[Rfam]
RNA sequence: UUGCACGUAGCACCCCGGGCUUCUCCGAAGGCAUCAAUUUGCAGAUAUGAAGAAGAAAGCCCCAAUGCUUGUGCUAAAUUUUCGCCGUCAAGUGUUGCAGUUUAGCCUCUUGUACCUAACUUUUUAUGGCUUUAUUUUGUGUCAAGUCGACGGCUAAAUCU
Numbered sequence: 001u002u003g004c005a006c007g008u009a010g011c012a013c014c015c016c017g018g019g020c021u022u023c024u025c026c027g028a029a030g031g032c033a034u035c036a037a038u039u040u041g042c043a044g045a046u047a048u049g050a051a052g053a054a055g056a057a058a059g060c061c062c063c064a065a066u067g068c069u070u071g072u073g074c075u076a077a078a079u080u081u082u083c084g085c086c087g088u089c090a091a092g093u094g095u096u097g098c099a100g101u102u103u104a105g106c107c108u109c110u111u112g113u114a115c116c117u118a119a120c121u122u123u124u125u126a127u128g129g130c131u132u133u134a135u136u137u138u139g140u141g142u143c144a145a146g147u148c149g150a151c152g153g154c155u156a157a158a159u160c161u
Base pairs, nucleotide, nucleotide: 003074004073005072006071007070010068011067017062018061019060020059021058022056023055024053025052084154085153086152087151088150089149093144094143096141097140098139099138100137105130106129107128
This 161-nucleotide RNA from Daucus carota belongs to the Rfam family "small nucleolar RNA snoR134".
It scores 98 bits against the family's covariance model.
Rfam classes the family as an H/ACA-box small nucleolar RNA.
Rfam 15.1 lists 792 matches to the family in 228 species.
Gene Ontology terms of the family: nucleolus and RNA processing.